[Rfam]
RNA sequence: CCUAGAGGAUUAAGAAGGCAGGGCCUGCUGAGUGAGGCCCUGCCGAUACCAUCCUCUUAGAGAAAUGUGAUGAGGAGAGGGGUCCAGCUUGCAGAAGAGCGGAGACCUCACUGUGCCAUCCGACAGCC
Numbered sequence: 001c002c003u004a005g006a007g008g009a010u011u012a013a014g015a016a017g018g019c020a021g022g023g024c025c026u027g028c029u030g031a032g033u034g035a036g037g038c039c040c041u042g043c044c045g046a047u048a049c050c051a052u053c054c055u056c057u058u059a060g061a062g063a064a065a066u067g068u069g070a071u072g073a074g075g076a077g078a079g080g081g082g083u084c085c086a087g088c089u090u091g092c093a094g095a096a097g098a099g100c101g102g103a104g105a106c107c108u109c110a111c112u113g114u115g116c117c118a119u120c121c122g123a124c125a126g127c128c
Stems, first nucleotide, its partner, number of pairs: 002060002004057006017044003021040006067121001069119001078112002080109003085104001090101003
Description
Small Cajal body specific RNA 4: a 128-nucleotide RNA from Varanus komodoensis. Lineage of the source: Eukaryota > Tetrapoda > Squamata > Bifurcata > Varanus. Its family is annotated with RNA processing, nucleolus and Cajal body in the Gene Ontology. It scores 94 bits against the family's covariance model. The family's consensus secondary structure was predicted with RNAfold. The family has 24 seed sequences and 634 matches in Rfam 15.1. The family's RNA type in Rfam is small Cajal body RNA. scaRNAs are a specific class of small nuclear RNAs which localise to the Cajal bodies and guide the modification of RNA polymerase II transcribed spliceosomal RNAs U1, U2, U4, U5 and U12.